RNA sequence: AGAGGAGACAUCCAAAGGGAUCGCAUUGAUCCUAAACUUAGCUCUCCCAUAAUUCAAUCUUUUGGAUCAUGCUAUCCCUUUGGAUUCCUCCUU
Numbered sequence: 001a002g003a004g005g006a007g008a009c010a011u012c013c014a015a016a017g018g019g020a021u022c023g024c025a026u027u028g029a030u031c032c033u034a035a036a037c038u039u040a041g042c043u044c045u046c047c048c049a050u051a052a053u054u055c056a057a058u059c060u061u062u063u064g065g066a067u068c069a070u071g072c073u074a075u076c077c078c079u080u081u082g083g084a085u086u087c088c089u090c091c092u093u
Stems, first nucleotide, its partner, number of pairs: 002093005010085012023072004028068005036061001
Overview:
This 93-nucleotide RNA sequence from Hevea brasiliensis belongs to the Rfam family "mir-393 microRNA precursor family". A search with the family's covariance model found it, with a score of 88 bits. The base pairs follow the family's consensus structure. NCBI's taxonomy places the organism under Eukaryota, Viridiplantae, Pentapetalae, fabids, Hevea. Its family is annotated with RISC complex and miRNA-mediated post-transcriptional gene silencing in the Gene Ontology. The literature on the family includes a 2012 paper in J Plant Physiol by Kruszka et al., "Role of microRNAs and other sRNAs of plants in their changing environments".